This 107-nucleotide sequence from Camphora micrantha belongs to the Rfam family "MIR168 microRNA precursor family". Gene Ontology terms of the family: RISC complex and miRNA-mediated post-transcriptional gene silencing. A reference for the family is Jagadeeswaran et al. (2009), "Cloning and characterization of small RNAs from Medicago truncatula reveals four novel legume-specific microRNA families", New Phytol. Rfam 15.1 lists 518 matches to the family in 218 species. Pairs were carried over by alignment from the consensus structure, which was predicted with WAR.
RNA sequence: GUCACUACCUUCUCUAAUUCGCUUGGUGCAGGUCGGGAACGCUGGUUCGUCUCUAAAGACGAAGCCUAUCCCGCCUUGCAUAAAGUGAAUCCGAGAUAGCGGUGAAU
Numbered sequence: 001g002u003c004a005c006u007a008c009c010u011u012c013u014c015u016a017a018u019u020c021g022c023u024u025g026g027u028g029c030a031g032g033u034c035g036g037g038a039a040c041g042c043u044g045g046u047u048c049g050u051c052u053c054u055a056a057a058g059a060c061g062a063a064g065c066c067u068a069u070c071c072c073g074c075c076u077u078g079c080a081u082a083a084a085g086u087g088a089a090u091c092c093g094a095g096a097u098a099g100c101g102g103u104g105a106a107u
Stems, first nucleotide, its partner, number of pairs: 013094002017090004023084002026081007034073005